[Rfam]
RNA sequence: UCGAUGGCGGGGGCACGCACACCUUCCGUGCUCCGCCGCCUUCUCAAGUAGGGGAUAGAUCGACGCGUCAAGAAAUCGUUUCAGUUGCCAUGGCUCCAGUAGGCAAUAUGAUUGUUGCUUGACCACAG
Numbered sequence: 001u002c003g004a005u006g007g008c009g010g011g012g013g014c015a016c017g018c019a020c021a022c023c024u025u026c027c028g029u030g031c032u033c034c035g036c037c038g039c040c041u042u043c044u045c046a047a048g049u050a051g052g053g054g055a056u057a058g059a060u061c062g063a064c065g066c067g068u069c070a071a072g073a074a075a076u077c078g079u080u081u082c083a084g085u086u087g088c089c090a091u092g093g094c095u096c097c098a099g100u101a102g103g104c105a106a107u108a109u110g111a112u113u114g115u116u117g118c119u120u121g122a123c124c125a126c127a128g
Stems, first nucleotide, its partner, number of pairs: 006040005012032006067123001069121004075112004084107006
A member of the RNA family "Small nucleolar RNA snoR111" from Panicum virgatum, 128 nucleotides long. The family has 6 seed sequences and 533 matches in Rfam 15.1. On this family, see Marker et al., Curr Biol 2002: "Experimental RNomics: identification of 140 candidates for small non-messenger RNAs in the plant Arabidopsis thaliana". Lineage of the source: Eukaryota > Viridiplantae > Euphyllophyta > Mesangiospermae > Panicum sect. Hiantes. It is annotated as an H/ACA-box small nucleolar RNA. Pairs were carried over by alignment from the consensus structure, which was predicted with WAR.